Shown here is a 179-nucleotide sequence from Bacillus manliponensis, a member of the family "Group II catalytic intron D1-D4-5". For this family Rfam cites "The ins and outs of group II introns" (Bonen and Vogel, Trends Genet, 2001). Lineage of the source: Bacteria > Bacillati > Caryophanales > Bacillaceae > Bacillus. Rfam describes the family as follows. Group II introns are found in rRNA, tRNA and mRNA of organelles in fungi, plants and protists, and also in mRNA in bacteria. Pairs were carried over by alignment from the consensus structure. Rfam links the family to the GO term Group II intron splicing.
RNA sequence: AACAACUGAUUGACUGAAAGUAGGAAUGAAAGCCGUCAAGUUGAGCUGAAACUACUUAUCUGAUACUCCUACAUGCAAGACGUGAUAGUAGUCACAAAUUGUAUGAAGCUAGGUAAAGUCGGCUGAACAAAACCUAAGUGAGAAAUCAUAUGGUUAUGGAUAGGUCGGGAUGCUACAAA
Numbered sequence: 001a002a003c004a005a006c007u008g009a010u011u012g013a014c015u016g017a018a019a020g021u022a023g024g025a026a027u028g029a030a031a032g033c034c035g036u037c038a039a040g041u042u043g044a045g046c047u048g049a050a051a052c053u054a055c056u057u058a059u060c061u062g063a064u065a066c067u068c069c070u071a072c073a074u075g076c077a078a079g080a081c082g083u084g085a086u087a088g089u090a091g092u093c094a095c096a097a098a099u100u101g102u103a104u105g106a107a108g109c110u111a112g113g114u115a116a117a118g119u120c121g122g123c124u125g126a127a128c129a130a131a132a133c134c135u136a137a138g139u140g141a142g143a144a145a146u147c148a149u150a151u152g153g154u155u156a157u158g159g160a161u162a163g164g165u166c167g168g169g170a171u172g173c174u175a176c177a178a179a
Stems, first nucleotide, its partner, number of pairs: 018057006031047003058171004068113004072105007082095004120167005128158002131155003134142002146152001